[Rfam]
A member of the RNA family "Mason-Pfizer monkey virus packaging signal" from Callithrix jacchus, 276 nucleotides long. On this family, see Mustafa et al., Virus Res 2004: "Mutational analysis of the predicted secondary RNA structure of the Mason-Pfizer monkey virus packaging signal". It is annotated as a cis-regulatory element. The source organism's lineage runs through Eukaryota, Chordata, Euarchontoglires, Callitrichinae and Callithrix. Pairs were carried over by alignment from the consensus structure, which was predicted with PFOLD.
RNA sequence: UGGCGCCCAACAUGAGAGCUCAAGUAUGAGGGACACAGUGAGGGACGCUGUCAAGGUCCGCCGGCACAGAAGGAUUAAGAAACCCGGAGGGAAGAGCAAUGUGGGAACCUGCCAUGGACUCGUGCUCCAGUAAGCGGACGGCGAAUAUGGGACAGGAAAUCAGCCAGCAUGAGUUGUUCAUAGAGAGUUUAAGUAAGGCUUUAAAGGCGCGGGGAGUAAAGGUGAAAAUAAAGCGAUUGUGUAAAUAUUUUGACUACAUUCAGGAUGUCUGCCCUU
Numbered sequence: 001u002g003g004c005g006c007c008c009a010a011c012a013u014g015a016g017a018g019c020u021c022a023a024g025u026a027u028g029a030g031g032g033a034c035a036c037a038g039u040g041a042g043g044g045a046c047g048c049u050g051u052c053a054a055g056g057u058c059c060g061c062c063g064g065c066a067c068a069g070a071a072g073g074a075u076u077a078a079g080a081a082a083c084c085c086g087g088a089g090g091g092a093a094g095a096g097c098a099a100u101g102u103g104g105g106a107a108c109c110u111g112c113c114a115u116g117g118a119c120u121c122g123u124g125c126u127c128c129a130g131u132a133a134g135c136g137g138a139c140g141g142c143g144a145a146u147a148u149g150g151g152a153c154a155g156g157a158a159a160u161c162a163g164c165c166a167g168c169a170u171g172a173g174u175u176g177u178u179c180a181u182a183g184a185g186a187g188u189u190u191a192a193g194u195a196a197g198g199c200u201u202u203a204a205a206g207g208c209g210c211g212g213g214g215a216g217u218a219a220a221g222g223u224g225a226a227a228a229u230a231a232a233g234c235g236a237u238u239g240u241g242u243a244a245a246u247a248u249u250u251u252g253a254c255u256a257c258a259u260u261c262a263g264g265a266u267g268u269c270u271g272c273c274c275u276u
Base pairs, nucleotide, nucleotide: 006032007031008030012027013026014025038048039047085130087128088126089125094121095120096119100116101115102114103113104112135155137153142149143148160203162201163199164198165197210252211251212250213249214248216246217245220238221237223235224234262275263274264273266271